[Rfam]
RNA sequence: GUUAAUCGCAAGAGGUGCCUUGUGCUGAGAAACGUCAUCCGUUAACUCUUAUAACCUGAUGAAGUUAGUACUUACGUAGGAAUGUGAUAGCUGAUAUGC
Numbered sequence: 001g002u003u004a005a006u007c008g009c010a011a012g013a014g015g016u017g018c019c020u021u022g023u024g025c026u027g028a029g030a031a032a033c034g035u036c037a038u039c040c041g042u043u044a045a046c047u048c049u050u051a052u053a054a055c056c057u058g059a060u061g062a063a064g065u066u067a068g069u070a071c072u073u074a075c076g077u078a079g080g081a082a083u084g085u086g087a088u089a090g091c092u093g094a095u096a097u098g099c
Stems, first nucleotide, its partner, number of pairs: 006087005011049004017025002032042003055080004062073003